[Rfam]
RNA sequence: UUCUUAUCAAGAGUGGUUAAGGGACUGGCCCUAUGAUACCCGGCAACCUGAACUUUUAUGUCCAACGGUGCUAAUUCCAGCAGGUAAAAUCCUGAAAGAUGAGAA
Numbered sequence: 001u002u003c004u005u006a007u008c009a010a011g012a013g014u015g016g017u018u019a020a021g022g023g024a025c026u027g028g029c030c031c032u033a034u035g036a037u038a039c040c041c042g043g044c045a046a047c048c049u050g051a052a053c054u055u056u057u058a059u060g061u062c063c064a065a066c067g068g069u070g071c072u073a074a075u076u077c078c079a080g081c082a083g084g085u086a087a088a089a090u091c092c093u094g095a096a097a098g099a100u101g102a103g104a105a
Stems, first nucleotide, its partner, number of pairs: 001105008013041001015040003021031003025080004042072004047068002049064002052061001076097001081094004
This 105-nucleotide RNA sequence from Clostridium ljungdahlii belongs to the Rfam family "SAM riboswitch aptamer (S box leader)". Pairs were carried over by alignment from the consensus structure, which is taken from published work. Rfam describes the family as follows. The SAM riboswitch is found upstream of a number of genes which code for proteins involved in methionine or cysteine biosynthesis in Gram-positive bacteria. The match comes from Rfam's covariance-model search (89 bits).